[Rfam]
RNA sequence: GCACAACAGCAAACCACAUCCUGCUUCUUCACAGCUGGUAGUGGGUUAAAAAUGUGCUAUAGUAACUCGUAGUGUAUCCAGACGGGUCUCCUCAUCUGUUGGAGCUUGUCUCUACAAACUAUGAUACAUGU
Numbered sequence: 001g002c003a004c005a006a007c008a009g010c011a012a013a014c015c016a017c018a019u020c021c022u023g024c025u026u027c028u029u030c031a032c033a034g035c036u037g038g039u040a041g042u043g044g045g046u047u048a049a050a051a052a053u054g055u056g057c058u059a060u061a062g063u064a065a066c067u068c069g070u071a072g073u074g075u076a077u078c079c080a081g082a083c084g085g086g087u088c089u090c091c092u093c094a095u096c097u098g099u100u101g102g103a104g105c106u107u108g109u110c111u112c113u114a115c116a117a118a119c120u121a122u123g124a125u126a127c128a129u130g131u
Base pairs, nucleotide, nucleotide: 001057002056003055004054005053012046014044015043016042017041020038021037067124068123069122070121071120072119080111081110082109083108084107085106086105087104092102093101094100
RNA: Small nucleolar RNA SNORA55
Organism: Labeo rohita